[Rfam]
RNA sequence: GCGGGGAUAUCAUCUUAUACUGUAAGUUUAUUAUAGAGACACUACAGUAUAGAUGAUGUACUAUCCCG
Numbered sequence: 001g002c003g004g005g006g007a008u009a010u011c012a013u014c015u016u017a018u019a020c021u022g023u024a025a026g027u028u029u030a031u032u033a034u035a036g037a038g039a040c041a042c043u044a045c046a047g048u049a050u051a052g053a054u055g056a057u058g059u060a061c062u063a064u065c066c067c068g
Stems, first nucleotide, its partner, number of pairs: 001065001004062002007059008016051009026040003
Overview
This 68-nucleotide sequence from Paralichthys olivaceus belongs to the Rfam family "mir-144 microRNA precursor family". Lineage of the source: Eukaryota > Chordata > Actinopterygii > Paralichthyidae > Paralichthys. Gene Ontology terms of the family: RISC complex and miRNA-mediated post-transcriptional gene silencing. For this family Rfam cites "Identification of microRNAs from different tissues of chicken embryo and adult chicken" (Xu et al., FEBS Lett, 2006). Rfam's curators put it in the seed alignment. The family has 32 seed sequences and 594 matches in Rfam 15.1.